A member of the RNA family "Class I RNA from Dictyostelium" from Dictyostelium purpureum, 44 nucleotides long. Lineage of the source: Eukaryota > Amoebozoa > Evosea > Dictyostelia > Dictyostelium. The literature on the family includes a 2011 paper in RNA Biol by Avesson et al., "Abundant class of non-coding RNA regulates development in the social amoeba Dictyostelium discoideum". Rfam describes the family as follows. Dictyostelium Class I RNA was first reported for Aspegren et al. 2004 in Dictyostelium discoideum. Sucgang et al. 2011 identify putative homologs of Class I RNA in D. discoideum and D. purpureum. Avesson et al. 2011 report that Class I RNA present a down regulation during the development of social amoeba Dictyostelium discoideum, they also found that deletion of one of the Class I RNAs, DdR-21, results in aberrant development. Kjellin et al. 2020 report an extended number of expressed Class I RNA genes in class Dictyostelia, in their analysis they remark that Class I RNA appear to be unique to dictyostelid social amoebas, and they hypothesise that Class I RNAs were involved in evolution of multicellularity in Dictyostelia.
[Rfam]
RNA sequence: GAAUUCCUUACAGCAAUUACAUUAUUGAAGAAACCUGAAUUCUG
Numbered sequence: 001g002a003a004u005u006c007c008u009u010a011c012a013g014c015a016a017u018u019a020c021a022u023u024a025u026u027g028a029a030g031a032a033a034c035c036u037g038a039a040u041u042c043u044g
Stems, first nucleotide, its partner, number of pairs: 001042006